Description
Shown here is a 64-nucleotide RNA from Hydrocarboniclastica marina, a member of the family "Xanthine riboswitch aptamer (NMT1 RNA)". Gene Ontology term of the family: purine nucleobase binding. Taxonomically the source falls in Hydrocarboniclastica (Bacteria, Pseudomonadota, Alteromonadales, Alteromonadaceae). The match comes from Rfam's covariance-model search (45 bits).

RNA sequence: AGUCUGAGUAGAAGCAGUCAGGAACCUGCCGUGCUUGCGGUAGUUUCGGGUCAUUGCUCAGUUG
Numbered sequence: 001a002g003u004c005u006g007a008g009u010a011g012a013a014g015c016a017g018u019c020a021g022g023a024a025c026c027u028g029c030c031g032u033g034c035u036u037g038c039g040g041u042a043g044u045u046u047c048g049g050g051u052c053a054u055u056g057c058u059c060a061g062u063u064g
Stems, first nucleotide, its partner, number of pairs: 005060006015049001019050001021047005